Rfam assigns this 221-nucleotide RNA from Clostridium sulfidigenes to the family "glmS glucosamine-6-phosphate activated ribozyme aptamer". This entry contains a glucosamine-6-phosphate activated ribozyme that is found in the mRNA for GlmS. GlmS is an enzyme that uses fructose-6-phosphate and glutamine to generate glucosamine-6-phosphate. The ribozyme catalyses self cleavage of the glmS mRNA that is thought to regulate GlmS activity. A search with the family's covariance model found it, with a score of 106 bits. The literature on the family includes a 2006 paper in Biochemistry by Hampel and Tinsley, "Evidence for preorganization of the glmS ribozyme ligand binding pocket".

RNA sequence: CCACAUAACUAAGCGCCAGGACUUAAGUGAAAAGGAAGCUCCUUUUCAUUGCAUUCAAAUGAGUAAGUUCCACUAGCCAAAUCAUAGAUUUGGAGUGUCACUUAAGUUGACGAGGAUGGGGAGUAUCGAAUCUUCGGCGGGUGCCCCACGGUAUCGCACUACCGUUAACGAUUGAUAAAGACAGGAAGUGAUUCCUGUUACAAAGCAAUCCGGUGUAAAAC
Number, nucleotide and partner (000 for none) at each position: 001c000002c000003a000004c000005a000006u000007a000008a000009c000010u000011a000012a000013g000014c000015g000016c000017c000018a000019g000020g108021a107022c106023u105024u104025a103026a102027g101028u000029g099030a000031a000032a000033a000034g000035g000036a000037a000038g000039c000040u000041c000042c000043u000044u000045u000046u000047c000048a000049u000050u000051g000052c000053a000054u000055u000056c000057a000058a000059a000060u000061g000062a000063g000064u000065a000066a000067g000068u000069u000070c000071c000072a000073c000074u000075a000076g000077c000078c000079a000080a000081a000082u000083c000084a000085u000086a000087g000088a000089u000090u000091u000092g000093g000094a000095g000096u000097g000098u000099c029100a000101c027102u026103u025104a024105a023106g022107u021108u020109g000110a000111c000112g000113a000114g000115g000116a000117u148118g147119g146120g145121g144122a000123g000124u000125a000126u137127c136128g135129a134130a000131u000132c000133u000134u129135c128136g127137g126138c000139g000140g000141g000142u000143g000144c121145c120146c119147c118148a117149c164150g163151g162152u161153a160154u000155c000156g000157c000158a000159c000160u153161a152162c151163c150164g149165u000166u000167a000168a000169c000170g210171a209172u208173u207174g206175a000176u000177a000178a000179a000180g000181a198182c197183a196184g195185g194186a193187a192188g000189u000190g000191a000192u187193u186194c185195c184196u183197g182198u181199u000200a000201c000202a000203a000204a000205g000206c174207a173208a172209u171210c170211c000212g000213g000214u000215g000216u000217a000218a000219a000220a000221c000